[Rfam]
RNA sequence: GACAGUGCUGUACCUUCGCUGGGAUCUGCAGUAUCCCCCAAUGACCCUCUGCCGCAGGGUGGGACAGCACAGUC
Numbered sequence: 001g002a003c004a005g006u007g008c009u010g011u012a013c014c015u016u017c018g019c020u021g022g023g024a025u026c027u028g029c030a031g032u033a034u035c036c037c038c039c040a041a042u043g044a045c046c047c048u049c050u051g052c053c054g055c056a057g058g059g060u061g062g063g064a065c066a067g068c069a070c071a072g073u074c
Base pairs, nucleotide, nucleotide: 001074002073003072005070006069007068010065011064013062014061021037022036023035024034025033044060045059046058047057048056

Rfam assigns this 74-nucleotide RNA from Atta cephalotes to the family "bZIP non canonical Hac1/Xbp1 intron". From the family's description: bZIP intron RNA is a non-canonical intron that was first reported in HAC1 gene in yeast and XBP1 gene in Metazoa. The match comes from Rfam's covariance-model search (44 bits). Rfam 15.1 lists 1,325 matches to the family in 1,320 species. The base pairs follow the family's consensus structure, which was predicted with RNAfold. NCBI's taxonomy places the organism under Eukaryota, Opisthokonta, Allotriocarida, Apocrita, Atta.